Shown here is an 84-nucleotide RNA from Streptomyces noursei, a member of the family "nrdJ RNA". The family's consensus secondary structure is taken from published work.
RNA sequence: UCCUGAACCGGGGCGAGAGCAGGGCGCCCCGGUUCCGGCAAGACAUACACCGUGCCACGGAAUUUGUGUGCACAUAUGGGCGUU
Dot-bracket structure: ...((((((((((((.........)))))))))).))..............((((.((.......))..))))...........